[Rfam]
RNA sequence: GGGUGCGACAGGGCUACCUGUCGUAGGUUUCCGGAUGGUCGGGCCGCCAUCC
Numbered sequence: 001g002g003g004u005g006c007g008a009c010a011g012g013g014c015u016a017c018c019u020g021u022c023g024u025a026g027g028u029u030u031c032c033g034g035a036u037g038g039u040c041g042g043g044c045c046g047c048c049a050u051c052c
Stems, first nucleotide, its partner, number of pairs: 005024008033052007
RNA: nhaA-I RNA